[Rfam]
RNA sequence: GGAGUUCCAUCGCCGCAAACUUCCUCGGGUCAUGGCUGUACUUUUUCAAAACCCCAUGGCCCGAGGAUGUUGCCUGUGAUCCAGCUCA
Numbered sequence: 001g002g003a004g005u006u007c008c009a010u011c012g013c014c015g016c017a018a019a020c021u022u023c024c025u026c027g028g029g030u031c032a033u034g035g036c037u038g039u040a041c042u043u044u045u046u047c048a049a050a051a052c053c054c055c056a057u058g059g060c061c062c063g064a065g066g067a068u069g070u071u072g073c074c075u076g077u078g079a080u081c082c083a084g085c086u087c088a
Stems, first nucleotide, its partner, number of pairs: 002087005009080004015073004020069001022067014